RNA sequence: GGCGGCAUAGCCAAGUGGUAAGGCAUGGGUCUGCAACACCCUGAUCGCCGGUUCAAAUCCGACUGCCGCCU
Number, nucleotide and partner (000 for none) at each position: 001g070002g069003c068004g067005g066006c065007a064008u000009a000010g024011c023012c022013a000014a000015g000016u000017g000018g000019u000020a000021a000022g012023g011024c010025a000026u000027g041028g040029g039030u038031c000032u000033g000034c000035a000036a000037c000038a030039c029040c028041c027042u000043g000044a000045u000046c000047g063048c000049c061050g060051g059052u000053u000054c000055a000056a000057a000058u000059c051060c050061g049062a000063c047064u007065g006066c005067c004068g003069c002070c001071u000

Background: Shown here is a 71-nucleotide sequence from Caryophanon tenue, a member of the family "tRNA". The match comes from Rfam's covariance-model search (59 bits). The family's consensus secondary structure is taken from published work. NCBI's taxonomy places the organism under Bacteria, Bacillota, Bacilli, Caryophanaceae, Caryophanon. Rfam classes the family as a transfer RNA.